[Rfam]
RNA sequence: AUCUUGCCACGCUGAAUGUGCUCGUUAGUCAUAACCACCCAUAUCGUCAAGGGCAUAUGACUAGAGACACAUUCAGCUUGGCUCACAU
Numbered sequence: 001a002u003c004u005u006g007c008c009a010c011g012c013u014g015a016a017u018g019u020g021c022u023c024g025u026u027a028g029u030c031a032u033a034a035c036c037a038c039c040c041a042u043a044u045c046g047u048c049a050a051g052g053g054c055a056u057a058u059g060a061c062u063a064g065a066g067a068c069a070c071a072u073u074c075a076g077c078u079u080g081g082c083u084c085a086c087a088u
Stems, first nucleotide, its partner, number of pairs: 006082004012076009022067002027062007
A member of the RNA family "mir-44 microRNA precursor family" from Caenorhabditis japonica, 88 nucleotides long. The base pairs follow the family's consensus structure, which was predicted with RNAalifold. The family has 13 seed sequences and 66 matches in Rfam 15.1. The organism belongs to Caenorhabditis, within Eukaryota. On this family, see de Wit et al., Genome Res 2009: "Repertoire and evolution of miRNA genes in four divergent nematode species".